[Rfam]
RNA sequence: UGUGUGGUGAUGAUCCGCGCAGGGGUACGGACCUCAGCCAGUGAUGGGGGCUGAGCGCUGCUGCAGGAACCCAUCAGAGCGUGUGGUUCUGAUGGGGUCAGCAGCAGAGCGACACAGACGCCUGUCUGAACACG
Numbered sequence: 001u002g003u004g005u006g007g008u009g010a011u012g013a014u015c016c017g018c019g020c021a022g023g024g025g026u027a028c029g030g031a032c033c034u035c036a037g038c039c040a041g042u043g044a045u046g047g048g049g050g051c052u053g054a055g056c057g058c059u060g061c062u063g064c065a066g067g068a069a070c071c072c073a074u075c076a077g078a079g080c081g082u083g084u085g086g087u088u089c090u091g092a093u094g095g096g097g098u099c100a101g102c103a104g105c106a107g108a109g110c111g112a113c114a115c116a117g118a119c120g121c122c123u124g125u126c127u128g129a130a131c132a133c134g
Base pairs, nucleotide, nucleotide: 001134002133003132004131005130
Dot-bracket structure: (((((............................................................................................................................)))))
The family of this 134-nucleotide RNA sequence from Poecilia reticulata is "Small nucleolar RNA SNORD94". The source organism's lineage runs through Eukaryota, Neopterygii, Euteleosteomorpha, Acanthomorphata and Poecilia. It is annotated as a C/D-box small nucleolar RNA.